[Rfam]
RNA sequence: CCGACCUUACUUGAACAGGAUCUACCCUAUGGGUUGUACCUCGUUAUCCUUGACCUCUAAGGAGACAAGAAACCAUGUCUGGUCGAUGAGCCUUGACUGCUCGACCUGAGCGUGAUUAGCAGCACCAUGGCUCAGGUUCAUGAGCCACUGGUGCAGUAGAGGAUCGUUCAUGGUUGGCUUAGGCUAGCCUGGAUGGUCGAGCAGCUGUCUGACAGACU
Numbered sequence: 001c002c003g004a005c006c007u008u009a010c011u012u013g014a015a016c017a018g019g020a021u022c023u024a025c026c027c028u029a030u031g032g033g034u035u036g037u038a039c040c041u042c043g044u045u046a047u048c049c050u051u052g053a054c055c056u057c058u059a060a061g062g063a064g065a066c067a068a069g070a071a072a073c074c075a076u077g078u079c080u081g082g083u084c085g086a087u088g089a090g091c092c093u094u095g096a097c098u099g100c101u102c103g104a105c106c107u108g109a110g111c112g113u114g115a116u117u118a119g120c121a122g123c124a125c126c127a128u129g130g131c132u133c134a135g136g137u138u139c140a141u142g143a144g145c146c147a148c149u150g151g152u153g154c155a156g157u158a159g160a161g162g163a164u165c166g167u168u169c170a171u172g173g174u175u176g177g178c179u180u181a182g183g184c185u186a187g188c189c190u191g192g193a194u195g196g197u198c199g200a201g202c203a204g205c206u207g208u209c210u211g212a213c214a215g216a217c218u
Stems, first nucleotide, its partner, number of pairs: 002036001003034001005033003013027001017023002045065001047063006077217005097204010109168004119157002122154006128147007169191001172189007

The record is a 218-nucleotide RNA from Phtheirospermum japonicum, which matches "Plant small nucleolar RNA U3" in Rfam. A search with the family's covariance model found it, with a score of 142 bits. Rfam classes the family as a C/D-box small nucleolar RNA. From the family's description: Small nucleolar RNAs (snoRNAs) are involved in the processing and modification of rRNA in the nucleolus. There are two main classes of snoRNAs: the box C/D class, and the box H/ACA class. The base pairs follow the family's consensus structure, which is taken from published work. Lineage of the source: Eukaryota > Viridiplantae > Spermatophyta > Mesangiospermae > Phtheirospermum. On this family, see Zwieb, Nucleic Acids Res 1997: "The uRNA database".